Shown here is a 97-nucleotide sequence from Sulfuricella sp., a member of the family "c-di-GMP-I riboswitch aptamer". Gene Ontology term of the family: cyclic-di-GMP binding. The organism belongs to Sulfuricella, within Bacteria. Rfam describes the family as follows. GEMM was predicted in a large-scale screen for bacterial structured RNA regulatory elements. The family's consensus secondary structure is taken from published work.
RNA sequence: UCCUGAAAAAGGCCACCCUGCUCGAAAGACGGGGGCGCAAAUUUCCGAUCUACGGGCGAGGCAGUGUAUUGCGACCUAUGAUUGAGGGACUGCCAGG
Numbered sequence: 001u002c003c004u005g006a007a008a009a010a011g012g013c014c015a016c017c018c019u020g021c022u023c024g025a026a027a028g029a030c031g032g033g034g035g036c037g038c039a040a041a042u043u044u045c046c047g048a049u050c051u052a053c054g055g056g057c058g059a060g061g062c063a064g065u066g067u068a069u070u071g072c073g074a075c076c077u078a079u080g081a082u083u084g085a086g087g088g089a090c091u092g093c094c095a096g097g
Base pairs, nucleotide, nucleotide: 012038013037017033018032019031020030022029023028041091042089043088045087046086048082049081050080055076056075

The match comes from Rfam's covariance-model search (36 bits).